[Rfam]
RNA sequence: AUGCUCCUUGUUGUGUUUUAGUGUUGGCAGAUAUCUGGACCCCGCCCUAGCGGUCCGGACUUAAACCUCGAACUUCUCCCUCCCCAUACGAAGUUCGAGGUUUUUUUUCGCGCGCAU
Numbered sequence: 001a002u003g004c005u006c007c008u009u010g011u012u013g014u015g016u017u018u019u020a021g022u023g024u025u026g027g028c029a030g031a032u033a034u035c036u037g038g039a040c041c042c043c044g045c046c047c048u049a050g051c052g053g054u055c056c057g058g059a060c061u062u063a064a065a066c067c068u069c070g071a072a073c074u075u076c077u078c079c080c081u082c083c084c085c086a087u088a089c090g091a092a093g094u095u096c097g098a099g100g101u102u103u104u105u106u107u108u109c110g111c112g113c114g115c116a117u
Stems, first nucleotide, its partner, number of pairs: 034059008063104003066100011
Annotation: The family of this 117-nucleotide sequence from Pseudomonas kuykendallii is "Pseudomon-1/ErsA RNA". Rfam describes the family as follows. Functions to regulate the AlgC enzyme. Based on this information, the new name ErsA for the RNA was adopted. Negatively regulates major porin oprD expression responsible for uptake of carbapenem antibiotics, by base pairing with oprD 5'UTR (leading to increased bacterial resistance to meropenem).Positively regulates amrZ mRNA and contributes to biofilm formation and motility. It scores 124 bits against the family's covariance model. Pairs were carried over by alignment from the consensus structure, which is taken from published work. Gene Ontology terms of the family: sRNA-mediated gene silencing, response to antibiotic and mRNA binding. The organism belongs to Pseudomonas, within Bacteria. Rfam classes the family as a small RNA.